FMN riboswitch aptamer (RFN element): a 126-nucleotide sequence from Labedaea rhizosphaerae. The source organism's lineage runs through Bacteria, Actinomycetes, Pseudonocardiales, Pseudonocardiaceae and Labedaea. The base pairs follow the family's consensus structure, which is taken from published work.
RNA sequence: CGUGCGUUCCGGGGUCGGUGAAAUUCCGAGCCGGCGGUACAGCCCGCGACCCGCCUGCACCCGCAGGUGGUUGACCUGGUGGAACUCCAGGGCCGACGGUGAGAGUCCGGAUGGGAGGAGCGCACG
Numbered sequence: 001c002g003u004g005c006g007u008u009c010c011g012g013g014g015u016c017g018g019u020g021a022a023a024u025u026c027c028g029a030g031c032c033g034g035c036g037g038u039a040c041a042g043c044c045c046g047c048g049a050c051c052c053g054c055c056u057g058c059a060c061c062c063g064c065a066g067g068u069g070g071u072u073g074a075c076c077u078g079g080u081g082g083a084a085c086u087c088c089a090g091g092g093c094c095g096a097c098g099g100u101g102a103g104a105g106u107c108c109g110g111a112u113g114g115g116a117g118g119a120g121c122g123c124a125c126g
Base pairs, nucleotide, nucleotide: 003124004123005122006121007120008119009118010117016028017027018026030106031105032095033094034047035046036045037044042093043092051070052069075091076090077089078088079087097109098108099107